[Rfam]
RNA sequence: AAAAUGUGCUGGGAGUGCUUGAUUACUAUCGGGCUGAGAUAGAUCCUUAAUACUUGAACUGGAUAAUACCAGCGUAGGGAAGCAUCUGCACAAUAUC
Numbered sequence: 001a002a003a004a005u006g007u008g009c010u011g012g013g014a015g016u017g018c019u020u021g022a023u024u025a026c027u028a029u030c031g032g033g034c035u036g037a038g039a040u041a042g043a044u045c046c047u048u049a050a051u052a053c054u055u056g057a058a059c060u061g062g063a064u065a066a067u068a069c070c071a072g073c074g075u076a077g078g079g080a081a082g083c084a085u086c087u088g089c090a091c092a093a094u095a096u097c
Base pairs, nucleotide, nucleotide: 006085007084008083009082010081011047012046013045014044016041017034018033019032020031021030053078054077055076056075059072060071061070062069
Background: TPP riboswitch aptamer (THI element): a 97-nucleotide sequence from Olivibacter sp. SDN3. The base pairs follow the family's consensus structure, which is taken from published work. Gene Ontology term of the family: thiamine pyrophosphate binding. NCBI's taxonomy places the organism under Bacteria, Sphingobacteriia, Sphingobacteriales, Sphingobacteriaceae, Olivibacter.